[Rfam]
RNA: T-box leader
Organism: Lentibacillus cibarius
RNA sequence: UGAACAGUUAUGACAGGAAAUAGUAAUAAGCAAUGCUUUCUACAGAGAGUCGGUGGCGGGUGAAAACCGAUGAAGGCAACUUGUGAAUCCGUCCUUGAACUGGUUUACCGAAAUUUUUCAGUAGGUGAACCCGGUCAACAGCCGUUAUUCGAUGAAGCCGGAAGAGAGAUGUGCAUUUCUCUUCAACGAGGGUGGCAACGCGGGAAUAAAAACUUCCGUCCCUGAA
Numbered sequence: 001u002g003a004a005c006a007g008u009u010a011u012g013a014c015a016g017g018a019a020a021u022a023g024u025a026a027u028a029a030g031c032a033a034u035g036c037u038u039u040c041u042a043c044a045g046a047g048a049g050u051c052g053g054u055g056g057c058g059g060g061u062g063a064a065a066a067c068c069g070a071u072g073a074a075g076g077c078a079a080c081u082u083g084u085g086a087a088u089c090c091g092u093c094c095u096u097g098a099a100c101u102g103g104u105u106u107a108c109c110g111a112a113a114u115u116u117u118u119c120a121g122u123a124g125g126u127g128a129a130c131c132c133g134g135u136c137a138a139c140a141g142c143c144g145u146u147a148u149u150c151g152a153u154g155a156a157g158c159c160g161g162a163a164g165a166g167a168g169a170u171g172u173g174c175a176u177u178u179c180u181c182u183u184c185a186a187c188g189a190g191g192g193u194g195g196c197a198a199c200g201c202g203g204g205a206a207u208a209a210a211a212a213c214u215u216c217c218g219u220c221c222c223u224g225a226a
Base pairs, nucleotide, nucleotide: 007100008099015095016094017093018092026084027083028082029081030080038074039073040072049071050070051069052068053067054066103130104129105128106127107126108125109124132144133143134142161184162183163182164181165180166179167178168177169176189223190222191221192220200219201218202217203216204215